[Rfam]
RNA sequence: CUGUAUCUUGCUUCAACAGUGUUUGGAUGGAACAG
Number, nucleotide and partner (000 for none) at each position: 001c035002u034003g033004u032005a000006u031007c030008u029009u000010g028011c000012u027013u026014c025015a024016a023017c021018a000019g000020u000021g017022u000023u016024u015025g014026g013027a012028u010029g008030g007031a006032a004033c003034a002035g001
Annotation: Rfam assigns this 35-nucleotide RNA from Macaca mulatta to the family "Iron response element I". It is one of the family's seed sequences. Rfam classes the family as a cis-regulatory element. The source organism's lineage runs through Eukaryota, Bilateria, Teleostomi, Tetrapoda and Macaca. A reference for the family is Hentze et al. (1987), "Identification of the iron-responsive element for the translational regulation of human ferritin mRNA", Science. Its family is annotated with response to iron ion in the Gene Ontology.